RNA: Mitochondrion-encoded tmRNA
RNA sequence: AAAAUGGACCCAAAGGCGGUAUUUGGUAUUUCCAUAUAAACUAAUUAAUACGGGAAUAAUUAUAUAAGAAUUGACAUUUU
Numbered sequence: 001a002a003a004a005u006g007g008a009c010c011c012a013a014a015g016g017c018g019g020u021a022u023u024u025g026g027u028a029u030u031u032c033c034a035u036a037u038a039a040a041c042u043a044a045u046u047a048a049u050a051c052g053g054g055a056a057u058a059a060u061u062a063u064a065u066a067a068g069a070a071u072u073g074a075c076a077u078u079u080u
Stems, first nucleotide, its partner, number of pairs: 001080006010026005027058007